Notes:
This 80-nucleotide RNA sequence from Hermetia illucens belongs to the Rfam family "drz-agam-1 ribozyme". Taxonomically the source falls in Hermetia (Eukaryota, Ecdysozoa, Mandibulata, Hermetiinae). A search with the family's covariance model found it, with a score of 38 bits. Rfam 15.1 lists 10,507 matches to the family in 53 species. The base pairs follow the family's consensus structure, which is taken from published work. The literature on the family includes a 2009 paper in Science by Webb et al., "Widespread occurrence of self-cleaving ribozymes".
RNA sequence: UUACCACCAAACCUUAUCUCCACCUCCACGUGGUGACCGCUGGGAGUUCUUUCGUAACGAAAAGUUGCAGAUGGAGAAGG
Numbered sequence: 001u002u003a004c005c006a007c008c009a010a011a012c013c014u015u016a017u018c019u020c021c022a023c024c025u026c027c028a029c030g031u032g033g034u035g036a037c038c039g040c041u042g043g044g045a046g047u048u049c050u051u052u053c054g055u056a057a058c059g060a061a062a063a064g065u066u067g068c069a070g071a072u073g074g075a076g077a078a079g080g
Stems, first nucleotide, its partner, number of pairs: 013080003017076001019074002022034003046066001048064001050062005